[Rfam]
RNA sequence: GGGGGCAGAGGAAGCAUGGCCACGCAGCGCACAGACAAGGAGCUCGCUCCUGACAAAGCUGCGGGGAAAGUCCUCGUGCCCUUGGGCAGAGAGUGUCACUGGGAGACCAGCAGGCCCGGGUUCAGGAGCCUACAGCGAAGCUUUUUGCAGAGGUGUGGUUCCUGAGCACUGGCCACUUGCAGCAGCAAAGUUAUGCCAUGAGCGUUUCUCCAACGCCAACUGAACGAGGCUCACUCUCCUCAUGCCCC
Numbered sequence: 001g002g003g004g005g006c007a008g009a010g011g012a013a014g015c016a017u018g019g020c021c022a023c024g025c026a027g028c029g030c031a032c033a034g035a036c037a038a039g040g041a042g043c044u045c046g047c048u049c050c051u052g053a054c055a056a057a058g059c060u061g062c063g064g065g066g067a068a069a070g071u072c073c074u075c076g077u078g079c080c081c082u083u084g085g086g087c088a089g090a091g092a093g094u095g096u097c098a099c100u101g102g103g104a105g106a107c108c109a110g111c112a113g114g115c116c117c118g119g120g121u122u123c124a125g126g127a128g129c130c131u132a133c134a135g136c137g138a139a140g141c142u143u144u145u146u147g148c149a150g151a152g153g154u155g156u157g158g159u160u161c162c163u164g165a166g167c168a169c170u171g172g173c174c175a176c177u178u179g180c181a182g183c184a185g186c187a188a189a190g191u192u193a194u195g196c197c198a199u200g201a202g203c204g205u206u207u208c209u210c211c212a213a214c215g216c217c218a219a220c221u222g223a224a225c226g227a228g229g230c231u232c233a234c235u236c237u238c239c240u241c242a243u244g245c246c247c248c
Stems, first nucleotide, its partner, number of pairs: 002248005008241005015200006023064001038051005069231002072229004085097004099110004113173001115171001120167010130155001133152001140148002202216005